[Rfam]
A member of the RNA family "epsC RNA" from Paenibacillus tyrphae, 128 nucleotides long. Pairs were carried over by alignment from the consensus structure, which is taken from published work. Lineage of the source: Bacteria > Bacillota > Caryophanales > Paenibacillaceae > Paenibacillus.

RNA sequence: GGGUAAUGUCUACUGUACCCUUAUCAUUGUAGGCACUCGGCCGUGCUGUGGGUCUCCGACCUUAGCGUCUCCAUUCGGAGGAAAAUGGCAAGCGCAAUGGUGCGGUGCGAGGUGGGGUUAGAUGCCCC
Numbered sequence: 001g002g003g004u005a006a007u008g009u010c011u012a013c014u015g016u017a018c019c020c021u022u023a024u025c026a027u028u029g030u031a032g033g034c035a036c037u038c039g040g041c042c043g044u045g046c047u048g049u050g051g052g053u054c055u056c057c058g059a060c061c062u063u064a065g066c067g068u069c070u071c072c073a074u075u076c077g078g079a080g081g082a083a084a085a086u087g088g089c090a091a092g093c094g095c096a097a098u099g100g101u102g103c104g105g106u107g108c109g110a111g112g113u114g115g116g117g118u119u120a121g122a123u124g125c126c127c128c
Base pairs, nucleotide, nucleotide: 001020002019003018004017007035008034009033010032011031012030013029036111037110038109039108040106041105042104043103044102045101046100047099050062051061052060053059054058065095066094067093068092114128115127116126117125118124